[Rfam]
RNA sequence: GCCGAGUGGGGUAGCGCCUGCUUGUAAUCUAAGCGGAGGCAUUAAGGUGAACGGACAUUGGUUCAGCGCAUGGUUUCGGUUCCAUUGUGGCUCUUCUCUCGUCUGCCCGUUCCAAGCCAAGAGUAGAGCCAGGUGUCUUGUGCGAAGGCAUGGGCCUUGUGGCUCCCAGAGAGGAAGGCAUUGCGUGAGGCUGGUUUCACAGAGCAGCGAAAACUUCCCCCUCUUGACAGUGGAAGAUUAACAGGCAGUCGUCACUUGGAAGAAAAUGUUUGGAUUUUAAUUUGGAGAUUUUU
Numbered sequence: 001g002c003c004g005a006g007u008g009g010g011g012u013a014g015c016g017c018c019u020g021c022u023u024g025u026a027a028u029c030u031a032a033g034c035g036g037a038g039g040c041a042u043u044a045a046g047g048u049g050a051a052c053g054g055a056c057a058u059u060g061g062u063u064c065a066g067c068g069c070a071u072g073g074u075u076u077c078g079g080u081u082c083c084a085u086u087g088u089g090g091c092u093c094u095u096c097u098c099u100c101g102u103c104u105g106c107c108c109g110u111u112c113c114a115a116g117c118c119a120a121g122a123g124u125a126g127a128g129c130c131a132g133g134u135g136u137c138u139u140g141u142g143c144g145a146a147g148g149c150a151u152g153g154g155c156c157u158u159g160u161g162g163c164u165c166c167c168a169g170a171g172a173g174g175a176a177g178g179c180a181u182u183g184c185g186u187g188a189g190g191c192u193g194g195u196u197u198c199a200c201a202g203a204g205c206a207g208c209g210a211a212a213a214c215u216u217c218c219c220c221c222u223c224u225u226g227a228c229a230g231u232g233g234a235a236g237a238u239u240a241a242c243a244g245g246c247a248g249u250c251g252u253c254a255c256u257u258g259g260a261a262g263a264a265a266a267u268g269u270u271u272g273g274a275u276u277u278u279a280a281u282u283u284g285g286a287g288a289u290u291u292u293u
Stems, first nucleotide, its partner, number of pairs: 001040003004023007028037003047293001049291003056284002058280003061275006068269004074265004080261005087255004092251001099248001101246005108236001110235005116228001118226006126165006133158001135156001137154007166171001173218005182211001184209003191202003
Plant signal recognition particle RNA: a 293-nucleotide sequence from Gossypium anomalum. The family's consensus secondary structure is taken from published work. The match comes from Rfam's covariance-model search (167 bits).